MIR7504 microRNA precursor family: a 123-nucleotide sequence from Gossypium laxum.
Lineage of the source: Eukaryota > Embryophyta > rosids > Malvoideae > Gossypium.
Rfam 15.1 lists 7,343 matches to the family in 61 species.
A search with the family's covariance model found it, with a score of 105 bits.
The base pairs follow the family's consensus structure, which was predicted with RNAalifold.
RNA sequence: AAUAUGAGAAUGAUAGAUAAGAUUUUUUCUCCUGAUUUUCAGUUUUUUCCUCCUGACAAAAUUCAAAUCUAACUAAAACUGCUAAAAAUUAGGAGUAAAAAUCUGAUUUGUCAUCCUCCUAUU
Number, nucleotide and partner (000 for none) at each position: 001a123002a122003u121004a120005u000006g118007a117008g116009a000010a114011u113012g112013a111014u110015a109016g108017a107018u106019a000020a104021g103022a102023u101024u100025u099026u098027u097028u000029c095030u094031c093032c092033u091034g090035a089036u088037u087038u086039u085040c000041a083042g082043u000044u000045u000046u078047u077048u076049c000050c000051u000052c000053c000054u000055g000056a000057c000058a000059a000060a000061a000062u000063u000064c000065a000066a000067a000068u000069c000070u000071a000072a000073c000074u000075a000076a048077a047078a046079c000080u000081g000082c042083u041084a000085a039086a038087a037088a036089u035090u034091a033092g032093g031094a030095g029096u000097a027098a026099a025100a024101a023102u022103c021104u020105g000106a018107u017108u016109u015110g014111u013112c012113a011114u010115c000116c008117u007118c006119c000120u004121a003122u002123u001